[Rfam]
RNA: 6S / SsrS RNA
Organism: Bathymodiolus septemdierum thioautotrophic gill symbiont
RNA sequence: AAUUGUCUAUUGUACUUGCGUUGACUUUUGUCCCCUGAGCUGAUAAAUAAAAAAUAAGGAGAUGAGAUAGUGUGCUAUUGUGCAAGCCCGCCUUGCCUUUGGGUAUUGAAGCGGGAAGCCUGCGGUAUGCUUCGAACUUCCGCCUUGAACCUUAAUGGUUCAGGUUUAAAGUCACGCGAGUAUGAUAGACACUGA
Numbered sequence: 001a002a003u004u005g006u007c008u009a010u011u012g013u014a015c016u017u018g019c020g021u022u023g024a025c026u027u028u029u030g031u032c033c034c035c036u037g038a039g040c041u042g043a044u045a046a047a048u049a050a051a052a053a054a055u056a057a058g059g060a061g062a063u064g065a066g067a068u069a070g071u072g073u074g075c076u077a078u079u080g081u082g083c084a085a086g087c088c089c090g091c092c093u094u095g096c097c098u099u100u101g102g103g104u105a106u107u108g109a110a111g112c113g114g115g116a117a118g119c120c121u122g123c124g125g126u127a128u129g130c131u132u133c134g135a136a137c138u139u140c141c142g143c144c145u146u147g148a149a150c151c152u153u154a155a156u157g158g159u160u161c162a163g164g165u166u167u168a169a170a171g172u173c174a175c176g177c178g179a180g181u182a183u184g185a186u187a188g189a190c191a192c193u194g195a
Stems, first nucleotide, its partner, number of pairs: 002193001004191012017178003033164002036162006058141003063136001066133002069131008082119002087115005